[Rfam]
Record summary:
Rfam assigns this 91-nucleotide sequence from Rhodobacter aestuarii to the family "Rhodo-rpoB RNA". It scores 73 bits against the family's covariance model. It is annotated as a cis-regulatory element.
RNA sequence: GGUUCGGGAGCCUUCCGGUGGGACGGAAGGCAGGUAUGGAACCUGACCCCCCAUUCGCCUGCAACGUGUAUCGGGCCCCGACGAUACACGC
Numbered sequence: 001g002g003u004u005c006g007g008g009a010g011c012c013u014u015c016c017g018g019u020g021g022g023a024c025g026g027a028a029g030g031c032a033g034g035u036a037u038g039g040a041a042c043c044u045g046a047c048c049c050c051c052c053a054u055u056c057g058c059c060u061g062c063a064a065c066g067u068g069u070a071u072c073g074g075g076c077c078c079c080g081a082c083g084a085u086a087c088a089c090g091c
Stems, first nucleotide, its partner, number of pairs: 001043005010031008065090009